[Rfam]
RNA sequence: GGAAGACACAUCAUCGAGUGCAGCAUUGAUGAAUUCUUUCACUUUAUGCCCUGUUAGCCGUCCAACUCUUUCUGAGAUGAAUUCGCCAGUGCUGCACUCAAUCAUGUGUUUU
Dot-bracket structure: .....((((((.((.(((((((((((((.(((..................................................))).))))))))))))).)).))))))...
Shown here is a 112-nucleotide RNA sequence from Theobroma cacao, a member of the family "MIR397 microRNA precursor family". Taxonomically the source falls in Theobroma (Eukaryota, Streptophytina, Gunneridae, Malvales). For this family Rfam cites "High throughput approaches reveal splicing of primary microRNA transcripts and tissue specific expression of mature microRNAs in Vitis vinifera" (Mica et al., BMC Genomics, 2009).